[Rfam]
RNA: c-di-GMP-I riboswitch aptamer
RNA sequence: CUCCGAUAAUGGCAAACCCGGAGAAAUCCGGCGACGCAAAGCCAUGGGUCCUCGGUACCGCAUCCUGCGGGACCCGGAUCGCCAGGUUUCCGAC
Numbered sequence: 001c002u003c004c005g006a007u008a009a010u011g012g013c014a015a016a017c018c019c020g021g022a023g024a025a026a027u028c029c030g031g032c033g034a035c036g037c038a039a040a041g042c043c044a045u046g047g048g049u050c051c052u053c054g055g056u057a058c059c060g061c062a063u064c065c066u067g068c069g070g071g072a073c074c075c076g077g078a079u080c081g082c083c084a085g086g087u088u089u090c091c092g093a094c
Stems, first nucleotide, its partner, number of pairs: 012037002018031005040088004045084003048079003055073002058070004